Record summary: The record is a 389-nucleotide sequence from Eremothecium cymbalariae, which matches "Small nucleolar RNA snR37" in Rfam. The base pairs follow the family's consensus structure, which was predicted with WAR. Gene Ontology terms of the family: nucleolus and RNA processing.
RNA sequence: AUCAUCAGUAGUGGUUAAUACUAUCUAAAGAUAAUAUUAAUUACAAUUUCUAGAAACCUAAGUUUCCAUUAUCUCAGUCCUCAUGGUCCUCUGGUUCAAGAUUCUAUCCUGGAGUGUUGUUCCGUUCAGGGCUUGGUUAAUACUGGGAUUUGAGUAAUGGUUACAGUUUUUUAACCCAUAGCUGAACGGAUUUUGACUGGCCCCAAACAAGCUAGCUACAAUUUCCGUUUCGUUUCCGGUUUCUUAGAUUAUUAUCUGUUAUGAGAGGGUCUGGAAGUCAGUCGGUUGUUAAAACCUAAACGGUUCAGAAGACGCAUGUUAUCCAUUGUGCUACUUAACUGUCGCUUAUGUUGGGUAUCCGUUGUGCCCCCUCUCAUGUCAGGACAUCU
Numbered sequence: 001a002u003c004a005u006c007a008g009u010a011g012u013g014g015u016u017a018a019u020a021c022u023a024u025c026u027a028a029a030g031a032u033a034a035u036a037u038u039a040a041u042u043a044c045a046a047u048u049u050c051u052a053g054a055a056a057c058c059u060a061a062g063u064u065u066c067c068a069u070u071a072u073c074u075c076a077g078u079c080c081u082c083a084u085g086g087u088c089c090u091c092u093g094g095u096u097c098a099a100g101a102u103u104c105u106a107u108c109c110u111g112g113a114g115u116g117u118u119g120u121u122c123c124g125u126u127c128a129g130g131g132c133u134u135g136g137u138u139a140a141u142a143c144u145g146g147g148a149u150u151u152g153a154g155u156a157a158u159g160g161u162u163a164c165a166g167u168u169u170u171u172u173a174a175c176c177c178a179u180a181g182c183u184g185a186a187c188g189g190a191u192u193u194u195g196a197c198u199g200g201c202c203c204c205a206a207a208c209a210a211g212c213u214a215g216c217u218a219c220a221a222u223u224u225c226c227g228u229u230u231c232g233u234u235u236c237c238g239g240u241u242u243c244u245u246a247g248a249u250u251a252u253u254a255u256c257u258g259u260u261a262u263g264a265g266a267g268g269g270u271c272u273g274g275a276a277g278u279c280a281g282u283c284g285g286u287u288g289u290u291a292a293a294a295c296c297u298a299a300a301c302g303g304u305u306c307a308g309a310a311g312a313c314g315c316a317u318g319u320u321a322u323c324c325a326u327u328g329u330g331c332u333a334c335u336u337a338a339c340u341g342u343c344g345c346u347u348a349u350g351u352u353g354g355g356u357a358u359c360c361g362u363u364g365u366g367c368c369c370c371c372u373c374u375c376a377u378g379u380c381a382g383g384a385c386a387u388c389u
Base pairs, nucleotide, nucleotide: 008049010047012045013044014041015040016039017038018037019036020035022033023032024031025030052244053243054242055241056240057239058238063163066160067159068158069157070156071155072154074152076150077149078148079147080146081145085133086132087131088130089129090128093125098120100118105114135144136143137142184230185229186228187227188226189225190224193221194220195219197215198214199213200212201211256382257381258380260378262376263375264374265373266372267371268370269369270309271308272307273306274305275304311368313366316365317364318363320361322355323354324353325352327350328347330345331344333342334341